[Rfam]
RNA: mir-1 microRNA precursor family
RNA sequence: UUUGAGACAACAUGCUUCUUUAUAUCCCCAUAUGAAUUACGGUGCUAUGGAAUGUAAGGAAGUGUGUGGUUUCAGG
Dot-bracket structure: ......((.((((((((((((((((..(((((.............))))).)))))))))))))))).))......